[Rfam]
RNA sequence: AAUGUUUGAAAUUUUGCACACAUUUACAAUAAUUGUAAAUGUGUUGAAAAUCGUUUGCACAA
Numbered sequence: 001a002a003u004g005u006u007u008g009a010a011a012u013u014u015u016g017c018a019c020a021c022a023u024u025u026a027c028a029a030u031a032a033u034u035g036u037a038a039a040u041g042u043g044u045u046g047a048a049a050a051u052c053g054u055u056u057g058c059a060c061a062a
Base pairs, nucleotide, nucleotide: 003059004058005057009056010055011051012050013049014048015047018044019043020042021041022040023039024038025037026036027035028034029033
RNA: mir-287 microRNA precursor family